[Rfam]
RNA: MIR6224 microRNA precursor family
Organism: Sorghum bicolor
RNA sequence: ACUCCCUCCGUCCUAAUAUAUAAGGCGUAACCACUUUUUAAUCAUGUCCUAUAAUACAAAGCGUGCCCUCUCACAGACAUUAAUGCAGUAGUACUAGUGCUGAGAGAGAAAAUUAAAUGCGUUCUUGGUCUUUGAACCAGAGGUGGUUAUGCCUUAUAUACUAGGACGGAGGGAGU
Numbered sequence: 001a002c003u004c005c006c007u008c009c010g011u012c013c014u015a016a017u018a019u020a021u022a023a024g025g026c027g028u029a030a031c032c033a034c035u036u037u038u039u040a041a042u043c044a045u046g047u048c049c050u051a052u053a054a055u056a057c058a059a060a061g062c063g064u065g066c067c068c069u070c071u072c073a074c075a076g077a078c079a080u081u082a083a084u085g086c087a088g089u090a091g092u093a094c095u096a097g098u099g100c101u102g103a104g105a106g107a108g109a110a111a112a113u114u115a116a117a118u119g120c121g122u123u124c125u126u127g128g129u130c131u132u133u134g135a136a137c138c139a140g141a142g143g144u145g146g147u148u149a150u151g152c153c154u155u156a157u158a159u160a161c162u163a164g165g166a167c168g169g170a171g172g173g174a175g176u
Stems, first nucleotide, its partner, number of pairs: 001176015017160015033144006042135003049128003068108005074102002078099005084093003